[Rfam]
RNA sequence: CUACAUCCGUUGGGGUGCCCGCAAGACCGGGCUGAGAGGCAUCGCGCCAACCCAUCGAACCUGAUCCGGCUGAUACCGGCGUAGGGAACGGACCUCAGCACGCC
Numbered sequence: 001c002u003a004c005a006u007c008c009g010u011u012g013g014g015g016u017g018c019c020c021g022c023a024a025g026a027c028c029g030g031g032c033u034g035a036g037a038g039g040c041a042u043c044g045c046g047c048c049a050a051c052c053c054a055u056c057g058a059a060c061c062u063g064a065u066c067c068g069g070c071u072g073a074u075a076c077c078g079g080c081g082u083a084g085g086g087a088a089c090g091g092a093c094c095u096c097a098g099c100a101c102g103c104c
Stems, first nucleotide, its partner, number of pairs: 006092005011054004017032005039047002060085004066079004

Annotation:
The family of this 104-nucleotide RNA sequence from Roseovarius azorensis is "TPP riboswitch aptamer (THI element)". NCBI's taxonomy places the organism under Bacteria, Alphaproteobacteria, Rhodobacterales, Roseobacteraceae, Roseovarius. It scores 73 bits against the family's covariance model.